[Rfam]
RNA sequence: UAAGAUAAAGGCAAAUCUGGCGAAAGCCAGUGGCGCAAAGCUAUAGGGCCUUUUUAUUAAAGUAAAAUGGCAGCCAGCUACCAAAA
Numbered sequence: 001u002a003a004g005a006u007a008a009a010g011g012c013a014a015a016u017c018u019g020g021c022g023a024a025a026g027c028c029a030g031u032g033g034c035g036c037a038a039a040g041c042u043a044u045a046g047g048g049c050c051u052u053u054u055u056a057u058u059a060a061a062g063u064a065a066a067a068u069g070g071c072a073g074c075c076a077g078c079u080a081c082c083a084a085a086a
Base pairs, nucleotide, nucleotide: 001086004082011036012035017030018029019028020027021026034073039079040078041077042076046075047074048071049070050069
Rfam assigns this 86-nucleotide sequence from Anaerobacterium chartisolvens to the family "c-di-GMP-I-GGC riboswitch aptamer". The match comes from Rfam's covariance-model search (63 bits). The literature on the family includes a 2017 paper in Proc Natl Acad Sci U S A by Weinberg et al., "Bioinformatic analysis of riboswitch structures uncovers variant classes with altered ligand specificity". Taxonomically the source falls in Anaerobacterium (Bacteria, Bacillota, Clostridia, Oscillospiraceae). Pairs were carried over by alignment from the consensus structure, which is taken from published work.